Background: The record is a 149-nucleotide RNA sequence from Indicator maculatus, which matches "U12 minor spliceosomal RNA" in Rfam. Its Rfam clan is "U2 clan". It is annotated as a spliceosomal small nuclear RNA.
RNA sequence: AUGCCUUAAACUUAUGAGUAAGGAAAAUAACGACCCGGGGUGACGCCCGGGUCCUCACUGCCAAUGUGAGAGGAAUUUUUGCGCGGGUACAGGUCGCCCCAGGGUGGCCCGCUUACUUCGCGGGAUGCCCGGGAGCUGCGAUCUGCCCG
Numbered sequence: 001a002u003g004c005c006u007u008a009a010a011c012u013u014a015u016g017a018g019u020a021a022g023g024a025a026a027a028u029a030a031c032g033a034c035c036c037g038g039g040g041u042g043a044c045g046c047c048c049g050g051g052u053c054c055u056c057a058c059u060g061c062c063a064a065u066g067u068g069a070g071a072g073g074a075a076u077u078u079u080u081g082c083g084c085g086g087g088u089a090c091a092g093g094u095c096g097c098c099c100c101a102g103g104g105u106g107g108c109c110c111g112c113u114u115a116c117u118u119c120g121c122g123g124g125a126u127g128c129c130c131g132g133g134a135g136c137u138g139c140g141a142u143c144u145g146c147c148c149g
Base pairs, nucleotide, nucleotide: 004023005022006021007020008019032053033052034051035050036049037048038047039046054070055069056068057067058066084149085148086147087146088145091144092143093142094141095140096139097138099133100132102130103129104128105127106126108124109123110122111121112120